The record is a 135-nucleotide sequence from Oxynema acuminatum, which matches "c-di-AMP riboswitch aptamer (ydaO/yuaA leader)" in Rfam.
It scores 55 bits against the family's covariance model.

[Rfam]
RNA sequence: GGAUAAAUUUUGCUAAUCCUAUCCAACAACUGAAGCGGGGGAACCCAGUCAGGGGCUUAUUUUCUAAACCUAGAAAAGGGAUAUCUCUCAAUCCUCGCCCAUCAGCUAACCCCGUCGGCCUUGAGACGAGACUGA
Numbered sequence: 001g002g003a004u005a006a007a008u009u010u011u012g013c014u015a016a017u018c019c020u021a022u023c024c025a026a027c028a029a030c031u032g033a034a035g036c037g038g039g040g041g042a043a044c045c046c047a048g049u050c051a052g053g054g055g056c057u058u059a060u061u062u063u064c065u066a067a068a069c070c071u072a073g074a075a076a077a078g079g080g081a082u083a084u085c086u087c088u089c090a091a092u093c094c095u096c097g098c099c100c101a102u103c104a105g106c107u108a109a110c111c112c113c114g115u116c117g118g119c120c121u122u123g124a125g126a127c128g129a130g131a132c133u134g135a
Base pairs, nucleotide, nucleotide: 012119013118014117017034019032035115036114037113038112039111040110045052053100054099055098061076062075063074064073079094080093081092082091